[Rfam]
RNA sequence: GCCAAGUCUAGGGUCAUGACCGAACAACGAGAACCUCACUCGUAUGACUUGGCAACCUAUUAUGAGG
Numbered sequence: 001g002c003c004a005a006g007u008c009u010a011g012g013g014u015c016a017u018g019a020c021c022g023a024a025c026a027a028c029g030a031g032a033a034c035c036u037c038a039c040u041c042g043u044a045u046g047a048c049u050u051g052g053c054a055a056c057c058u059a060u061u062a063u064g065a066g067g
Stems, first nucleotide, its partner, number of pairs: 001053008011021002027043005035067002